RNA: mir-46/mir-47/mir-281 microRNA precursor family
Organism: Panagrolaimus sp. JU765
RNA sequence: AUCGUUGCAGUGUUAAGAGAGCCAUCUGUUGACAGUUUGAUGUUUUAAGUACUGUCAUGGAGUUGCUCUCUUAACAUUUGUAAUG
Numbered sequence: 001a002u003c004g005u006u007g008c009a010g011u012g013u014u015a016a017g018a019g020a021g022c023c024a025u026c027u028g029u030u031g032a033c034a035g036u037u038u039g040a041u042g043u044u045u046u047a048a049g050u051a052c053u054g055u056c057a058u059g060g061a062g063u064u065g066c067u068c069u070c071u072u073a074a075c076a077u078u079u080g081u082a083a084u085g
Stems, first nucleotide, its partner, number of pairs: 014073005020067003025061004031056003035052002
Dot-bracket structure: .............(((((.(((..((((..(((.((..............)).))).))))...))).)))))............